Record summary
This 93-nucleotide sequence from Turnix velox belongs to the Rfam family "mir-217 microRNA precursor family". A search with the family's covariance model found it, with a score of 102 bits. For this family Rfam cites "Vertebrate microRNA genes" (Lim et al., Science, 2003). Rfam 15.1 lists 698 matches to the family in 641 species.

[Rfam]
RNA sequence: AGGGUUUUGAUGUGGCAGAUACUGCAUCAGGAACUGAUUGGAUCACACUCACUCACCAUCGGUUCCUAAUGCAUUGCCUUCAGCAUCUAAACC
Numbered sequence: 001a002g003g004g005u006u007u008u009g010a011u012g013u014g015g016c017a018g019a020u021a022c023u024g025c026a027u028c029a030g031g032a033a034c035u036g037a038u039u040g041g042a043u044c045a046c047a048c049u050c051a052c053u054c055a056c057c058a059u060c061g062g063u064u065c066c067u068a069a070u071g072c073a074u075u076g077c078c079u080u081c082a083g084c085a086u087c088u089a090a091a092c093c
Base pairs, nucleotide, nucleotide: 023073024072025071026070027069029067030066031065032064033063034062035061036060037059039058040057041056